[Rfam]
Nucleotides: 129
Stems, first nucleotide, its partner, number of pairs: 003059005020045005026037002069122007077115003083109003089104006
Number, partner (000 for none) and nucleotide at each position: 001000c002000a003059g004058u005057a006056g007055a008000c009000a010000g011000u012000u013000a014000u015000c016000c017000c018000u019000u020045u021044c022043u023042a024041g025000u026037c027036u028000g029000g030000c031000u032000c033000c034000u035000g036027g037026g038000u039000c040000u041024c042023u043022a044021g045020a046000g047000g048000g049000a050000g051000u052000c053000a054000a055007u056006c057005u058004g059003c060000a061000a062000c063000a064000g065000u066000a067000a068000g069122u070121g071120g072119u073118a074117a075116g076000u077115u078114c079113u080000u081000c082000u083109g084108u085107c086000u087000a088000g089104c090103a091102u092101c093100a094099g095000u096000a097000u098000u099094u100093u101092g102091a103090u104089g105000g106000u107085g108084g109083c110000u111000u112000u113079g114078g115077a116075c117074u118073u119072g120071c121070c122069a123000g124000a125000u126000a127000g128000u129000a
Annotation:
The family of this 129-nucleotide RNA sequence from Balaenoptera physalus is "Small nucleolar RNA SNORA56". Rfam links the family to the GO terms nucleolus and RNA processing. Clan: SNORA56 clan. By type it is an H/ACA-box small nucleolar RNA. From the family's description: ACA56 is a member of the H/ACA class of snoRNA that guide the sites of modification of uridines to pseudouridines. Rfam 15.1 lists 153 matches to the family in 125 species.